A member of the RNA family "Bacterial RNase P class A" from Vitreoscilla sp. C1, 349 nucleotides long. A search with the family's covariance model found it, with a score of 308 bits. Lineage of the source: Bacteria > Pseudomonadota > Neisseriales > Neisseriaceae > Vitreoscilla. It is annotated as a ribozyme. The family's consensus secondary structure is taken from published work.
RNA sequence: ACAGUUUGCCAGACAGUCGCCGCGUGGCAACACGGGGAGGAAAGUCCGGGCUCCAUAGAGCACAAUGCCAGCUAACGGCUGGGCGUCGAAAGGCGACGGAAAGUGGAACAGAAAGCAAAACCGCCGAUGGCCUUCGGGCACAGGUAAGGGUGAAAAGGUGCGGUAAGAGCGCACCGGGCACUUGGCAACAAGAUGUCGCAGGCUAAACCCCAUUGGGAGCAAGACCAAACAGAACCCGCUAAUGUGGCUCGCAUUGGGUUCGGGUAGGUUGCUUGACGGCAUGAGCAAUCAUGCUGCUAGAUGAAUGACUGUCCAACGACAAAACCCGGCUUAUCGACAAACUGUAAUG
Numbered sequence: 001a002c003a004g005u006u007u008g009c010c011a012g013a014c015a016g017u018c019g020c021c022g023c024g025u026g027g028c029a030a031c032a033c034g035g036g037g038a039g040g041a042a043a044g045u046c047c048g049g050g051c052u053c054c055a056u057a058g059a060g061c062a063c064a065a066u067g068c069c070a071g072c073u074a075a076c077g078g079c080u081g082g083g084c085g086u087c088g089a090a091a092g093g094c095g096a097c098g099g100a101a102a103g104u105g106g107a108a109c110a111g112a113a114a115g116c117a118a119a120a121c122c123g124c125c126g127a128u129g130g131c132c133u134u135c136g137g138g139c140a141c142a143g144g145u146a147a148g149g150g151u152g153a154a155a156a157g158g159u160g161c162g163g164u165a166a167g168a169g170c171g172c173a174c175c176g177g178g179c180a181c182u183u184g185g186c187a188a189c190a191a192g193a194u195g196u197c198g199c200a201g202g203c204u205a206a207a208c209c210c211c212a213u214u215g216g217g218a219g220c221a222a223g224a225c226c227a228a229a230c231a232g233a234a235c236c237c238g239c240u241a242a243u244g245u246g247g248c249u250c251g252c253a254u255u256g257g258g259u260u261c262g263g264g265u266a267g268g269u270u271g272c273u274u275g276a277c278g279g280c281a282u283g284a285g286c287a288a289u290c291a292u293g294c295u296g297c298u299a300g301a302u303g304a305a306u307g308a309c310u311g312u313c314c315a316a317c318g319a320c321a322a323a324a325c326c327c328g329g330c331u332u333a334u335c336g337a338c339a340a341a342c343u344g345u346a347a348u349g
Stems, first nucleotide, its partner, number of pairs: 001345008010336001011334001012313007020037002023034004042332003046329005051219004058250004063215005068082005083097001084095004098210002103208002105204002121149002123145003128140002131137001157175006176199001177197004182191003223270004232261006241255005277296008